The family of this 48-nucleotide RNA from Streptomyces sp. SPB074 is "L31-Actinobacteria ribosomal protein leader". The family is grouped with related families in Rfam's "Ribosomal Protein L31 Leader clan".
[Rfam]
RNA sequence: UCGGUCCCGGUUCACGCGGCGCCAUCCCCGGCUCCGCGACCCGGCACC
Numbered sequence: 001u002c003g004g005u006c007c008c009g010g011u012u013c014a015c016g017c018g019g020c021g022c023c024a025u026c027c028c029c030g031g032c033u034c035c036g037c038g039a040c041c042c043g044g045c046a047c048c
Stems, first nucleotide, its partner, number of pairs: 003048003007044004015038005021032003
Notes: The sequence is in the family's curated seed alignment. The base pairs follow the family's consensus structure, which is taken from published work. Rfam classes the family as a cis-regulatory leader. Lineage of the source: Bacteria > Bacillati > Actinomycetes > Streptomycetaceae > Streptomyces.